[Rfam]
RNA sequence: AGCUAUGAUGAUGUAAUUUGCGUCGUAUUUCAAGCUAGGAACGCUAGCCUGGUGUUCAUUCAACUAGCUUGUAAAAAAUGAUGAAUUUUUAACACGACUGAGCU
Dot-bracket structure: (((.................((((.....(((((...(.(((((.......))))).......)...)))).)......))))..................)))
Small nucleolar RNA SNORD16: a 104-nucleotide RNA from Brachionus plicatilis. A reference for the family is Fragapane et al. (1993), "A novel small nucleolar RNA (U16) is encoded inside a ribosomal protein intron and originates by processing of the pre-mRNA", EMBO J. It is annotated as a C/D-box small nucleolar RNA.